[Rfam]
RNA sequence: GCAACCUGAAGCUCGCGCGCGAGAACGUGGUGGUGUUCCGGUCGCUGCUGGGCAUCAGCUGGAUGUGGUUCUUCGGCGCCGUGUUCCUCAGCCAGUUUCCCAGCUUCGCCAAGGAGGUGCUG
Numbered sequence: 001g002c003a004a005c006c007u008g009a010a011g012c013u014c015g016c017g018c019g020c021g022a023g024a025a026c027g028u029g030g031u032g033g034u035g036u037u038c039c040g041g042u043c044g045c046u047g048c049u050g051g052g053c054a055u056c057a058g059c060u061g062g063a064u065g066u067g068g069u070u071c072u073u074c075g076g077c078g079c080c081g082u083g084u085u086c087c088u089c090a091g092c093c094a095g096u097u098u099c100c101c102a103g104c105u106u107c108g109c110c111a112a113g114g115a116g117g118u119g120c121u122g
Base pairs, nucleotide, nucleotide: 010049011048012047014044015043017042018041021038022037023036025034026033051121052120053119054118055117059113060112062110063105067099068098071095072094074091076089078088081086